This 63-nucleotide RNA sequence from Trypanosoma cruzi belongs to the Rfam family "Trypanosomatid snoRNA TB9Cs3H2". A reference for the family is Liang et al. (2005), "A genome-wide analysis of C/D and H/ACA-like small nucleolar RNAs in Trypanosoma brucei reveals a trypanosome-specific pattern of rRNA modification", RNA. The family's consensus secondary structure was predicted with WAR.
RNA sequence: AGUGCCCUCAGGUAAUGUGGUGGUUGCGAUCCCGUCAGCACCGCAGGUUCAAGAGGCACGAGA
Numbered sequence: 001a002g003u004g005c006c007c008u009c010a011g012g013u014a015a016u017g018u019g020g021u022g023g024u025u026g027c028g029a030u031c032c033c034g035u036c037a038g039c040a041c042c043g044c045a046g047g048u049u050c051a052a053g054a055g056g057c058a059c060g061a062g063a
Base pairs, nucleotide, nucleotide: 002059003058004057005056006055016045017044018043019042020041021040022039027034

Its family is annotated with nucleolus and RNA processing in the Gene Ontology. By type it is an H/ACA-box small nucleolar RNA.